RNA sequence: UGGUUAAAUUACACUCAGCGAUUUAAUUUUUCACUUUAUAUUAUAUCGUUAUUUAUUUUUUAACCUAUAUAAAAAUUCAUUUUAUAUCUUUUAAAUUUUUUCUUUUUUUAAUUUUAAGCAAAAUUAAAAAAGAAAUAUUUAAAGAUAUAUAUUUGAUUUUUUCCUUCAUAUUCCCGGUAUUUUCAACGCCUUUAGGCAGCUUCUUGUUAAGUAGUGUUGAUUUUGCCGUAACAAAACGGAGGAAAACAUAAAAAAAAAAAUGCAUUUUAAUAAUAUCCUG
Numbered sequence: 001u002g003g004u005u006a007a008a009u010u011a012c013a014c015u016c017a018g019c020g021a022u023u024u025a026a027u028u029u030u031u032c033a034c035u036u037u038a039u040a041u042u043a044u045a046u047c048g049u050u051a052u053u054u055a056u057u058u059u060u061u062a063a064c065c066u067a068u069a070u071a072a073a074a075a076u077u078c079a080u081u082u083u084a085u086a087u088c089u090u091u092u093a094a095a096u097u098u099u100u101u102c103u104u105u106u107u108u109u110a111a112u113u114u115u116a117a118g119c120a121a122a123a124u125u126a127a128a129a130a131a132g133a134a135a136u137a138u139u140u141a142a143a144g145a146u147a148u149a150u151a152u153u154u155g156a157u158u159u160u161u162u163c164c165u166u167c168a169u170a171u172u173c174c175c176g177g178u179a180u181u182u183u184c185a186a187c188g189c190c191u192u193u194a195g196g197c198a199g200c201u202u203c204u205u206g207u208u209a210a211g212u213a214g215u216g217u218u219g220a221u222u223u224u225g226c227c228g229u230a231a232c233a234a235a236a237c238g239g240a241g242g243a244a245a246a247c248a249u250a251a252a253a254a255a256a257a258a259a260a261u262g263c264a265u266u267u268u269a270a271u272a273a274u275a276u277c278c279u280g
Stems, first nucleotide, its partner, number of pairs: 002065007017050006025042003029038001083149009150251001153250001160245008176227004183220005188197003199215003203211002228237002
RNA: Plasmodium RNA of unkown function RUF1
Organism: Plasmodium relictum